[Rfam]
RNA sequence: CCAACACAAUCUGGAGAAUGGUAAAUUACCUACCGAAGGGAAGAAAAUGAUGAUAAAAUCAAACCUAGCAUCAUCAUUGAAAAUCUCAGGUCAAAGGACAGAUGGGGUGCU
Numbered sequence: 001c002c003a004a005c006a007c008a009a010u011c012u013g014g015a016g017a018a019u020g021g022u023a024a025a026u027u028a029c030c031u032a033c034c035g036a037a038g039g040g041a042a043g044a045a046a047a048u049g050a051u052g053a054u055a056a057a058a059u060c061a062a063a064c065c066u067a068g069c070a071u072c073a074u075c076a077u078u079g080a081a082a083a084u085c086u087c088a089g090g091u092c093a094a095a096g097g098a099c100a101g102a103u104g105g106g107g108u109g110c111u
Base pairs, nucleotide, nucleotide: 007105009103010102011101012100013099020030021029022028023027032091033090034089035087036086039085040084045078046077

Glycine riboswitch aptamer: a 111-nucleotide sequence from Moraxella sp. HMSC061H09. It scores 43 bits against the family's covariance model.